[Rfam]
RNA sequence: UUAUCGAAAAGAGGUUGCGGAUGAUAUGAGUAGCUGCAGUGAGAUGAUAAAGCAUCGCUGACCUGUAGUCAAAGGAGAUUCCGCCGAAGUUUGAAUUUGCUUUAUAAUUUUCAAGCUGGGAUCUGAUUGAAAAAAUCAGGAACUGUCGCAAUUGAUAGAUUGCGGAGCGCUGUCGAGUUU
Numbered sequence: 001u002u003a004u005c006g007a008a009a010a011g012a013g014g015u016u017g018c019g020g021a022u023g024a025u026a027u028g029a030g031u032a033g034c035u036g037c038a039g040u041g042a043g044a045u046g047a048u049a050a051a052g053c054a055u056c057g058c059u060g061a062c063c064u065g066u067a068g069u070c071a072a073a074g075g076a077g078a079u080u081c082c083g084c085c086g087a088a089g090u091u092u093g094a095a096u097u098u099g100c101u102u103u104a105u106a107a108u109u110u111u112c113a114a115g116c117u118g119g120g121a122u123c124u125g126a127u128u129g130a131a132a133a134a135a136u137c138a139g140g141a142a143c144u145g146u147c148g149c150a151a152u153u154g155a156u157a158g159a160u161u162g163c164g165g166a167g168c169g170c171u172g173u174c175g176a177g178u179u180u
Base pairs, nucleotide, nucleotide: 008173010171011170017084018083019082020081021080025076033069034068035067036066037065038064039063088117089116090115091114092113093112094111095110098107118144119143122140123139124138125137126136127135128134146165147164148163149162150161151160152159

Description:
A member of the RNA family "Lysine riboswitch aptamer" from Liquorilactobacillus vini, 180 nucleotides long. The match comes from Rfam's covariance-model search (101 bits). For this family Rfam cites "Riboswitches Control Fundamental Biochemical Pathways in Bacillus subtilis and Other Bacteria" (Mandal et al., Cell, 2003). Lineage of the source: Bacteria > Bacillati > Bacillota > Lactobacillaceae > Liquorilactobacillus vini.